[Rfam]
A member of the RNA family "Small nucleolar RNA SNORD70", 91 nucleotides long. By type it is a C/D-box small nucleolar RNA. It is one of the family's seed sequences. The pairing is the family consensus, mapped onto this sequence. From the family's description: snoRNA HBII-234 belongs to the C/D family of snoRNAs. It is the human orthologue of the mouse MBII-234 and is predicted to guide 2'O-ribose methylation of the small 18S rRNA on position A512.
RNA sequence: UUAUCUGUGCGUCUAUGAUGUUUCUGUUCACCCAAUUCAACCAUGAGGUCACCAAACAGUUAUUCGUCACUACCACUGAGACCACAAUUAU
Numbered sequence: 001u002u003a004u005c006u007g008u009g010c011g012u013c014u015a016u017g018a019u020g021u022u023u024c025u026g027u028u029c030a031c032c033c034a035a036u037u038c039a040a041c042c043a044u045g046a047g048g049u050c051a052c053c054a055a056a057c058a059g060u061u062a063u064u065c066g067u068c069a070c071u072a073c074c075a076c077u078g079a080g081a082c083c084a085c086a087a088u089u090a091u
Stems, first nucleotide, its partner, number of pairs: 002090002006086004011082003